[Rfam]
RNA: Small nucleolar RNA R44/J54/Z268 family
Organism: Vigna angularis
RNA sequence: AUUGCAGUUGACGAUAACGCAGACAGGGACAUUGGUACUUAUGCUAAGGAUGGUGGUUUGUCUUUGGGACUCUCUCCGAUGCAUA
Numbered sequence: 001a002u003u004g005c006a007g008u009u010g011a012c013g014a015u016a017a018c019g020c021a022g023a024c025a026g027g028g029a030c031a032u033u034g035g036u037a038c039u040u041a042u043g044c045u046a047a048g049g050a051u052g053g054u055g056g057u058u059u060g061u062c063u064u065u066g067g068g069a070c071u072c073u074c075u076c077c078g079a080u081g082c083a084u085a
Base pairs, nucleotide, nucleotide: 003083004082005081006080